The record is a 68-nucleotide RNA from Nematostella vectensis, which matches "mir-9416 microRNA precursor family" in Rfam. NCBI's taxonomy places the organism under Eukaryota, Anthozoa, Hexacorallia, Edwardsiidae, Nematostella. It is one of the family's seed sequences. Rfam links the family to the GO terms RISC complex and miRNA-mediated post-transcriptional gene silencing.
RNA sequence: CCUUGUACACGACAUCUCGUAGUGCUCAUGCAUCAUGCAAGAACACUACAAAUUGUCGUGUACAAGGU
Dot-bracket structure: ((((((((((((((....((((((.((.((((...)))).)).))))))....)))))))))))))).
Numbered sequence: 001c002c003u004u005g006u007a008c009a010c011g012a013c014a015u016c017u018c019g020u021a022g023u024g025c026u027c028a029u030g031c032a033u034c035a036u037g038c039a040a041g042a043a044c045a046c047u048a049c050a051a052a053u054u055g056u057c058g059u060g061u062a063c064a065a066g067g068u
Stems, first nucleotide, its partner, number of pairs: 001067014019049006026042002029039004